[Rfam]
The family of this 83-nucleotide RNA sequence from Trichechus manatus is "mir-1305 microRNA precursor family".
NCBI's taxonomy places the organism under Eukaryota, Bilateria, Craniata, Gnathostomata, Trichechus manatus.
Pairs were carried over by alignment from the consensus structure, which was predicted with RNAalifold.
It scores 66 bits against the family's covariance model.
RNA sequence: AAGACCCUGCUGCUUCCACCAUCAGAGCUGAACUUUUAUUGUAAAGUCACUUUUAAACUCUAAUGGGAGAGACAGCAGGAUUC
Numbered sequence: 001a002a003g004a005c006c007c008u009g010c011u012g013c014u015u016c017c018a019c020c021a022u023c024a025g026a027g028c029u030g031a032a033c034u035u036u037u038a039u040u041g042u043a044a045a046g047u048c049a050c051u052u053u054u055a056a057a058c059u060c061u062a063a064u065g066g067g068a069g070a071g072a073c074a075g076c077a078g079g080a081u082u083c
Stems, first nucleotide, its partner, number of pairs: 003082002006079007014071003019066004024061002029056001031054002037049001040046001